Background:
A member of the RNA family "Small nucleolar RNA SNORA55" from Nannospalax galili, 144 nucleotides long. By type it is an H/ACA-box small nucleolar RNA.
[Rfam]
RNA sequence: ACACUUAAGUCUUUCCUGAUUCUGCUGCUUGGUGCUGGUCUAGAGAUAACAGUGCUACUAGACUAGGAGCGGAGACUGUUGGGAUAUCCAGGCAGGUUGUUUCUAUUUGUCUUGGGGCCUCUCUCUUACAGCUCUGUUAUAUUU
Dot-bracket structure: .((((.......((.(((..((..............))..))).))....))))..............((((((...............(((.((((.....(((.......))).)))).))).......)))))).......
Rfam links the family to the GO terms RNA processing and nucleolus. Lineage of the source: Eukaryota > Opisthokonta > Eumetazoa > Glires > Nannospalax.